[Rfam]
RNA sequence: UACUAUGCUUGGGCCAAAACUCAUUCAGUUAUAGUAGACUCACAUCUGACUGCUUAGAAUCACAUAUUAUCGCAAAUCCAACUACAUCAUUGACAUUGAAAAACAUAGGACAAGCAUUUUGCAUACGAUAAC
Numbered sequence: 001u002a003c004u005a006u007g008c009u010u011g012g013g014c015c016a017a018a019a020c021u022c023a024u025u026c027a028g029u030u031a032u033a034g035u036a037g038a039c040u041c042a043c044a045u046c047u048g049a050c051u052g053c054u055u056a057g058a059a060u061c062a063c064a065u066a067u068u069a070u071c072g073c074a075a076a077u078c079c080a081a082c083u084a085c086a087u088c089a090u091u092g093a094c095a096u097u098g099a100a101a102a103a104c105a106u107a108g109g110a111c112a113a114g115c116a117u118u119u120u121g122c123a124u125a126c127g128a129u130a131a132c
Stems, first nucleotide, its partner, number of pairs: 004130003008127001011124001013122002017118002022114001024112001028111003
This 132-nucleotide RNA sequence from Populus trichocarpa belongs to the Rfam family "MIR480 microRNA precursor family". Its family is annotated with miRNA-mediated post-transcriptional gene silencing and RISC complex in the Gene Ontology. Rfam's curators put it in the seed alignment. On this family, see Lu et al., Plant Cell 2005: "Novel and mechanical stress-responsive MicroRNAs in Populus trichocarpa that are absent from Arabidopsis". The base pairs follow the family's consensus structure, which was predicted with WAR.